[Rfam]
RNA sequence: UUGUUGCUUUCCUACAACGAUAGCUUGUGAAUUCGGUCAGAGCUGGAAAGAAGCAGCCGUAGCAAGUGAUUCUCGUGUGUCUGGAUAUAGUACACAAAA
Numbered sequence: 001u002u003g004u005u006g007c008u009u010u011c012c013u014a015c016a017a018c019g020a021u022a023g024c025u026u027g028u029g030a031a032u033u034c035g036g037u038c039a040g041a042g043c044u045g046g047a048a049a050g051a052a053g054c055a056g057c058c059g060u061a062g063c064a065a066g067u068g069a070u071u072c073u074c075g076u077g078u079g080u081c082u083g084g085a086u087a088u089a090g091u092a093c094a095c096a097a098a099a
Base pairs, nucleotide, nucleotide: 005092006091007090008089010085011084012083015077017076018075019074020073022071023067024066025065026064027063028062034059035058036057037056043050044049
The record is a 99-nucleotide RNA from Pantoea sp. Aalb, which matches "Bacterial small signal recognition particle RNA" in Rfam. Pairs were carried over by alignment from the consensus structure, which is taken from published work. On this family, see Rosenblad et al., Nucleic Acids Res 2003: "SRPDB: Signal Recognition Particle Database". It scores 56 bits against the family's covariance model. NCBI's taxonomy places the organism under Bacteria, Pseudomonadota, Gammaproteobacteria, Erwiniaceae, Pantoea. From the family's description: The signal recognition particle (SRP) is a universally conserved ribonucleoprotein involved in the co-translational targeting of proteins to membranes.